[Rfam]
RNA sequence: CGGGAGAACUAUUGUUAAGGAACUCGGCAAAAUGACCCCGUAACUUCGGGAUAAGGGGAGCCGGUUUUGGUUAAAGAUUUACUCUGUAAGCCUCAACCGGCCGCAGAGAAUAGGCCCAAGCGACUGUUUACCAUAAACAUAGGUCUCUGCUAAGUCGAAAGACGACGUAUAGGGGCUGACGCCUGCCCGGUGCUGGAAGGUUAAGGGGAAUUGUUAGCAUCUGCGAAGCAAUGAACUUAAGCCCCAGUAAACGGCGGCCGUAACUAUAACGGUCCUAAGGUAGCGAAAUUCCUUGUCGGGUAAGUUCCGACCCGCACGAAAGGCGUAACGAUUUGGGCGCUGUCUCAACAAUAGACCCG
Numbered sequence: 001c002g003g004g005a006g007a008a009c010u011a012u013u014g015u016u017a018a019g020g021a022a023c024u025c026g027g028c029a030a031a032a033u034g035a036c037c038c039c040g041u042a043a044c045u046u047c048g049g050g051a052u053a054a055g056g057g058g059a060g061c062c063g064g065u066u067u068u069g070g071u072u073a074a075a076g077a078u079u080u081a082c083u084c085u086g087u088a089a090g091c092c093u094c095a096a097c098c099g100g101c102c103g104c105a106g107a108g109a110a111u112a113g114g115c116c117c118a119a120g121c122g123a124c125u126g127u128u129u130a131c132c133a134u135a136a137a138c139a140u141a142g143g144u145c146u147c148u149g150c151u152a153a154g155u156c157g158a159a160a161g162a163c164g165a166c167g168u169a170u171a172g173g174g175g176c177u178g179a180c181g182c183c184u185g186c187c188c189g190g191u192g193c194u195g196g197a198a199g200g201u202u203a204a205g206g207g208g209a210a211u212u213g214u215u216a217g218c219a220u221c222u223g224c225g226a227a228g229c230a231a232u233g234a235a236c237u238u239a240a241g242c243c244c245c246a247g248u249a250a251a252c253g254g255c256g257g258c259c260g261u262a263a264c265u266a267u268a269a270c271g272g273u274c275c276u277a278a279g280g281u282a283g284c285g286a287a288a289u290u291c292c293u294u295g296u297c298g299g300g301u302a303a304g305u306u307c308c309g310a311c312c313c314g315c316a317c318g319a320a321a322g323g324c325g326u327a328a329c330g331a332u333u334u335g336g337g338c339g340c341u342g343u344c345u346c347a348a349c350a351a352u353a354g355a356c357c358c359g
Stems, first nucleotide, its partner, number of pairs: 001359004009354008018345003036058004044049001060101006072088002075085003102106001114338007121330002125139003142177008150167001154163003180325004185255003190252002192248005199243003205237002210232005217224002256274006275279001285312001295311006
Notes
Rfam assigns this 359-nucleotide part of an RNA from Alkaliphilus sp. B6464 to the family "Bacterial large subunit ribosomal RNA". The match comes from Rfam's covariance-model search (2989 bits). Gene Ontology terms of the family: structural constituent of ribosome and ribosome. The source organism's lineage runs through Bacteria, Bacillati, Peptostreptococcales, Natronincolaceae and Alkaliphilus.